[Rfam]
ROOL RNA: a 569-nucleotide RNA sequence. Pairs were carried over by alignment from the consensus structure, which is taken from published work. It is annotated as a small RNA. It is one of the family's seed sequences.

RNA sequence: GAUUUUGAACAAUCUACUAAAUAACCAAGUGAAGAUAGGGUGACACCUUGCUUGGAUUGCAUACAUAAUUCUCGUUACACUUUUUGUGAGAUAUUGCAAAAAAGUAAGUAAUUCUCUUUUGGGUAACCCAAAGAGGUCAUGAAGCGAAAGAAGAUUGAGAGUGUAUGUAGUAUAGAGGUUGUGCGUAAUUAGAUCAUUAUCAGACGGUGGCAGUGACAAUAGACGCUCUCGGUGAGAGAAUAAUCUAGCGAGGCCUUAUGUAGCAGUAAGAACCAAACUAGAAAAGCUAUAAUAAACUGUUUUGCACUUGAGGUUGAGACAUCAGCCAAUAACACUAAAGAUAAGUACAAGUAGCCCAAAGUGUGCAGAUAAAACAUUGGAUAUGUUUAUGCUUAAAAUAUAUUUCUGAAUGUCGGGUGAAAGUUGGACGUAACCAGUCGUGCCUAGCCAUUUAAUCGCUACGGAAGUUAUAGGGUCGCUCCUUAUGGCUCAGACCGUGGUAGGCUAUCGGUCAAUAAAUUGCGUACAAUCGAAGUAGAGCGAAGGCUCAUUUAAUAGAUUGUUUAAAG
Numbered sequence: 001g002a003u004u005u006u007g008a009a010c011a012a013u014c015u016a017c018u019a020a021a022u023a024a025c026c027a028a029g030u031g032a033a034g035a036u037a038g039g040g041u042g043a044c045a046c047c048u049u050g051c052u053u054g055g056a057u058u059g060c061a062u063a064c065a066u067a068a069u070u071c072u073c074g075u076u077a078c079a080c081u082u083u084u085u086g087u088g089a090g091a092u093a094u095u096g097c098a099a100a101a102a103a104g105u106a107a108g109u110a111a112u113u114c115u116c117u118u119u120u121g122g123g124u125a126a127c128c129c130a131a132a133g134a135g136g137u138c139a140u141g142a143a144g145c146g147a148a149a150g151a152a153g154a155u156u157g158a159g160a161g162u163g164u165a166u167g168u169a170g171u172a173u174a175g176a177g178g179u180u181g182u183g184c185g186u187a188a189u190u191a192g193a194u195c196a197u198u199a200u201c202a203g204a205c206g207g208u209g210g211c212a213g214u215g216a217c218a219a220u221a222g223a224c225g226c227u228c229u230c231g232g233u234g235a236g237a238g239a240a241u242a243a244u245c246u247a248g249c250g251a252g253g254c255c256u257u258a259u260g261u262a263g264c265a266g267u268a269a270g271a272a273c274c275a276a277a278c279u280a281g282a283a284a285a286g287c288u289a290u291a292a293u294a295a296a297c298u299g300u301u302u303u304g305c306a307c308u309u310g311a312g313g314u315u316g317a318g319a320c321a322u323c324a325g326c327c328a329a330u331a332a333c334a335c336u337a338a339a340g341a342u343a344a345g346u347a348c349a350a351g352u353a354g355c356c357c358a359a360a361g362u363g364u365g366c367a368g369a370u371a372a373a374a375c376a377u378u379g380g381a382u383a384u385g386u387u388u389a390u391g392c393u394u395a396a397a398a399u400a401u402a403u404u405u406c407u408g409a410a411u412g413u414c415g416g417g418u419g420a421a422a423g424u425u426g427g428a429c430g431u432a433a434c435c436a437g438u439c440g441u442g443c444c445u446a447g448c449c450a451u452u453u454a455a456u457c458g459c460u461a462c463g464g465a466a467g468u469u470a471u472a473g474g475g476u477c478g479c480u481c482c483u484u485a486u487g488g489c490u491c492a493g494a495c496c497g498u499g500g501u502a503g504g505c506u507a508u509c510g511g512u513c514a515a516u517a518a519a520u521u522g523c524g525u526a527c528a529a530u531c532g533a534a535g536u537a538g539a540g541c542g543a544a545g546g547c548u549c550a551u552u553u554a555a556u557a558g559a560u561u562g563u564u565u566a567a568a569g
Stems, first nucleotide, its partner, number of pairs: 008565002012561001015558001018555001020553002025055005037048003057170006074109002076106003081102009113136007121128002140146002178531001180529001188521001190519001195511001197344004206336004210300005226238004244282005252274002255270003261289004303365005313326005348423001354418004359413001405494004427443001445507003457504001460500001464496001467490001469487007538549004